This 125-nucleotide sequence from Cellulomonas soli belongs to the Rfam family "SAM (S-adenosyl methionine) riboswitch aptamer". About the family: SAM-IV is a mRNA element that regulates gene expression via direct sensing of S-adenosylmethionine (SAM or AdoMet). SAM-IV riboswitches share conserved nucleotide positions with the previously described SAM-I riboswitches sequence analysis and molecular recognition experiments suggest that SAM-I and SAM-IV riboswitches share similar ligand binding sites, but have different scaffolds. The base pairs follow the family's consensus structure, which is taken from published work.
Nucleotides: 125
Base pairs, nucleotide, nucleotide: 001080002079003078004077009038011037012036013035014034015033016032021030022029039067040066041065044063045062046061048058083114084113085112086111087110088109089108091106092105
Number, partner (000 for none) and nucleotide at each position: 001080g002079g003078u004077c005000a006000g007000g008000a009038g010000u011037c012036c013035c014034c015033g016032c017000c018000g019000u020000c021030u022029g023000g024000c025000u026000c027000g028000g029022c030021a031000g032016g033015c034014g035013g036012g037011g038009c039067a040066g041065c042000a043000a044063c045062c046061c047000c048058c049000a050000c051000g052000a053000c054000a055000c056000a057000g058048g059000c060000g061046g062045g063044g064000u065041g066040c067039u068000u069000c070000c071000g072000a073000g074000c075000a076000a077004g078003a079002c080001c081000c082000g083114g084113c085112c086111c087110g088109c089108c090000c091106c092105u093000g094000c095000u096000c097000u098000c099000a100000c101000g102000g103000g104000g105092a106091g107000c108089g109088g110087c111086g112085g113084g114083c115000a116000a117000g118000c119000a120000c121000g122000u123000g124000u125000c